mir-27 microRNA precursor family: a 77-nucleotide RNA sequence from Aquarana catesbeiana. A reference for the family is Chen et al. (2005), "The developmental miRNA profiles of zebrafish as determined by small RNA cloning", Genes Dev. The base pairs follow the family's consensus structure, which was predicted with RNAalifold. Rfam links the family to the GO terms miRNA-mediated post-transcriptional gene silencing and RISC complex.

[Rfam]
RNA sequence: UGGAGGUGUAGGGCUUAGCUGCCUUGUGAACAUUUAAUAUAUAGGCAUGUUCACAGUGGCUAAGUUCCGCAUCUUUG
Numbered sequence: 001u002g003g004a005g006g007u008g009u010a011g012g013g014c015u016u017a018g019c020u021g022c023c024u025u026g027u028g029a030a031c032a033u034u035u036a037a038u039a040u041a042u043a044g045g046c047a048u049g050u051u052c053a054c055a056g057u058g059g060c061u062a063a064g065u066u067c068c069g070c071a072u073c074u075u076u077g
Stems, first nucleotide, its partner, number of pairs: 011067010026054007